[Rfam]
RNA: Saccharopolyspora sRNA 350
RNA sequence: UUGAAGGUCGCCUCCCAGGUGGACGAUUCUUCGGCCAGGGCCUGCGCGCCGAAGAACUCGCCGUCGGCGAGCAUGCUCAGCACGGUGUCGUCACCGUACUCGCCGGUGCCGAUCUUGUUGACCUUGCCGUGCGCGAUGAGCACGACCUCAUCCGCUGGCUGCCCGGCGGUCGCGAUCACCUGACCCGGCUCGAAUUCCUGCUGCACGAAACGAUCCGCCAGGGCGCGCAGCGUGGCGUCGUCAUCGAAUCCGCGAAGCAGCGGGAGUUCUUGCAAUUCCUGCGGGAUGACCCGCACGUCGGCACCGGUGUUGGUGAAGGUGACCCGACCAUCGCCGAGGGUGUAGCUCAGCCGUCGGUUGACCCGGUAGGCGCCGCCGGCCGCCUGCACCCACGGCAGCAUGCGCAGGAGCCAACGCGAGGUGAUGCCCUGCAUCUGCGGGACGGACUUGGUCGUGGUGGCCAGAUUCCGCGCCGCCGCCGUGCUCAGGCUCAACUGCGGCGCUUCGG
Numbered sequence: 001u002u003g004a005a006g007g008u009c010g011c012c013u014c015c016c017a018g019g020u021g022g023a024c025g026a027u028u029c030u031u032c033g034g035c036c037a038g039g040g041c042c043u044g045c046g047c048g049c050c051g052a053a054g055a056a057c058u059c060g061c062c063g064u065c066g067g068c069g070a071g072c073a074u075g076c077u078c079a080g081c082a083c084g085g086u087g088u089c090g091u092c093a094c095c096g097u098a099c100u101c102g103c104c105g106g107u108g109c110c111g112a113u114c115u116u117g118u119u120g121a122c123c124u125u126g127c128c129g130u131g132c133g134c135g136a137u138g139a140g141c142a143c144g145a146c147c148u149c150a151u152c153c154g155c156u157g158g159c160u161g162c163c164c165g166g167c168g169g170u171c172g173c174g175a176u177c178a179c180c181u182g183a184c185c186c187g188g189c190u191c192g193a194a195u196u197c198c199u200g201c202u203g204c205a206c207g208a209a210a211c212g213a214u215c216c217g218c219c220a221g222g223g224c225g226c227g228c229a230g231c232g233u234g235g236c237g238u239c240g241u242c243a244u245c246g247a248a249u250c251c252g253c254g255a256a257g258c259a260g261c262g263g264g265a266g267u268u269c270u271u272g273c274a275a276u277u278c279c280u281g282c283g284g285g286a287u288g289a290c291c292c293g294c295a296c297g298u299c300g301g302c303a304c305c306g307g308u309g310u311u312g313g314u315g316a317a318g319g320u321g322a323c324c325c326g327a328c329c330a331u332c333g334c335c336g337a338g339g340g341u342g343u344a345g346c347u348c349a350g351c352c353g354u355c356g357g358u359u360g361a362c363c364c365g366g367u368a369g370g371c372g373c374c375g376c377c378g379g380c381c382g383c384c385u386g387c388a389c390c391c392a393c394g395g396c397a398g399c400a401u402g403c404g405c406a407g408g409a410g411c412c413a414a415c416g417c418g419a420g421g422u423g424a425u426g427c428c429c430u431g432c433a434u435c436u437g438c439g440g441g442a443c444g445g446a447c448u449u450g451g452u453c454g455u456g457g458u459g460g461c462c463a464g465a466u467u468c469c470g471c472g473c474c475g476c477c478g479c480c481g482u483g484c485u486c487a488g489g490c491u492c493a494a495c496u497g498c499g500g501c502g503c504u505u506c507g508g
Base pairs, nucleotide, nucleotide: 006390007389008388014382018328021325022324024321025320027318028316029315035313036312037311038310040308041307042306046304048302049301050300051299052298054233057230058229062225063224064223065111066110067109068108075103077102079100080099082097083096084095085094086093118221119220120219122217127212130209131206133204134203135202138199140197144195149192154189155188156187157186158185160183166173167172234296240290241289242288243287244286245285249283251281252280254278256277257276260271262269329342330341331340332339351379352378353377355375356374357373362370363369391431392430394428395427396426397425399423400422401421403418404417405416407415437476438475439474440473443470444469445468446467448464449463450462451461452460477507478506480502481501482500484499486497487496488495